Rfam assigns this 107-nucleotide RNA sequence from Frateuria aurantia to the family "TPP riboswitch aptamer (THI element)". Pairs were carried over by alignment from the consensus structure, which is taken from published work.
[Rfam]
RNA sequence: ACAUGUUCCGAGGGGUGUCCUGCGCAGGCAGGGCUGAGAUGGCGUCAGCCGGACCCUUUGAACCUGAUCCGGGUCAUGCCGGCGAAGGGACGGGAAUCAUCAAGCAC
Numbered sequence: 001a002c003a004u005g006u007u008c009c010g011a012g013g014g015g016u017g018u019c020c021u022g023c024g025c026a027g028g029c030a031g032g033g034c035u036g037a038g039a040u041g042g043c044g045u046c047a048g049c050c051g052g053a054c055c056c057u058u059u060g061a062a063c064c065u066g067a068u069c070c071g072g073g074u075c076a077u078g079c080c081g082g083c084g085a086a087g088g089g090a091c092g093g094g095a096a097u098c099a100u101c102a103a104g105c106a107c
Stems, first nucleotide, its partner, number of pairs: 006095005011057004016051001017034005041050003063088003069082004
It scores 78 bits against the family's covariance model.